[Rfam]
RNA sequence: CAUCCCUAUGAAGAGUUACAUGAAAAUUAAAAGUAGUGGACUGAUCUCCUUUGAUGAGAAUACCAAUUCUGAGGGAUG
Numbered sequence: 001c002a003u004c005c006c007u008a009u010g011a012a013g014a015g016u017u018a019c020a021u022g023a024a025a026a027u028u029a030a031a032a033g034u035a036g037u038g039g040a041c042u043g044a045u046c047u048c049c050u051u052u053g054a055u056g057a058g059a060a061u062a063c064c065a066a067u068u069c070u071g072a073g074g075g076a077u078g
Stems, first nucleotide, its partner, number of pairs: 001078006